[Rfam]
A member of the RNA family "Small nucleolar RNA snoR60" from Thalictrum thalictroides, 72 nucleotides long. Lineage of the source: Eukaryota > Streptophytina > Embryophyta > Thalictroideae > Thalictrum.
RNA sequence: UGGCAUGUGAUGAAAUAUACUCGGAUUCCCCUUCAGGACAUUCUGAAUGAUGUAAAUCGAGUUUCUGAUGCU
Numbered sequence: 001u002g003g004c005a006u007g008u009g010a011u012g013a014a015a016u017a018u019a020c021u022c023g024g025a026u027u028c029c030c031c032u033u034c035a036g037g038a039c040a041u042u043c044u045g046a047a048u049g050a051u052g053u054a055a056a057u058c059g060a061g062u063u064u065c066u067g068a069u070g071c072u
Stems, first nucleotide, its partner, number of pairs: 002072004